Bacterial large subunit ribosomal RNA: a 263-nucleotide part of an RNA from uncultured Nitrospirae bacterium MY3-5B.
RNA sequence: GGAGACUUGAGAGGAUCUGUCCUUAGUACGAGAGGACCGGGAUGGACGAACCUCUAGUGUUCCAGUUGUCAUGCCAAUGGCAAUGCUGGGUAGCUAUGUUCGGUUGGGAUAACCGCUGAAAGCAUCUAAGUGGGAAACCCACCUCAAGAUUAUGUCUCCCGGGGAGUAAUCCCCCUAAAGGCUCGUGGAAGACCACCACGUUGAUAGGCUGGAGGUGUAAGUGUGGCAACACAUUGAGCUGACCAGUACUAAUAGGCCGUGAG
Numbered sequence: 001g002g003a004g005a006c007u008u009g010a011g012a013g014g015a016u017c018u019g020u021c022c023u024u025a026g027u028a029c030g031a032g033a034g035g036a037c038c039g040g041g042a043u044g045g046a047c048g049a050a051c052c053u054c055u056a057g058u059g060u061u062c063c064a065g066u067u068g069u070c071a072u073g074c075c076a077a078u079g080g081c082a083a084u085g086c087u088g089g090g091u092a093g094c095u096a097u098g099u100u101c102g103g104u105u106g107g108g109a110u111a112a113c114c115g116c117u118g119a120a121a122g123c124a125u126c127u128a129a130g131u132g133g134g135a136a137a138c139c140c141a142c143c144u145c146a147a148g149a150u151u152a153u154g155u156c157u158c159c160c161g162g163g164g165a166g167u168a169a170u171c172c173c174c175c176u177a178a179a180g181g182c183u184c185g186u187g188g189a190a191g192a193c194c195a196c197c198a199c200g201u202u203g204a205u206a207g208g209c210u211g212g213a214g215g216u217g218u219a220a221g222u223g224u225g226g227c228a229a230c231a232c233a234u235u236g237a238g239c240u241g242a243c244c245a246g247u248a249c250u251a252a253u254a255g256g257c258c259g260u261g262a263g
Stems, first nucleotide, its partner, number of pairs: 001159006008152001011145004017045007047102005055096003062089005067082006106140003113133005162175003177260001180258004184200005205251003208247005214240002221234005
Dot-bracket structure: ((((((.(..((((..(((((((...............))))))).(((((...(((....(((((((((((....))))))..)))))....))).)))))...(((....(((((...........)))))....))).))))......).))))))..(((........))).(..(((((((((.......)))))....((((((((.((.....(((((....)))))....))..))))).)))...)))).)...
The family is grouped with related families in Rfam's "LSU clan".
Rfam links the family to the GO terms ribosome and structural constituent of ribosome.
Pairs were carried over by alignment from the consensus structure, which is taken from published work.
Taxonomically the source falls in Nitrospirota (Bacteria, Pseudomonadati).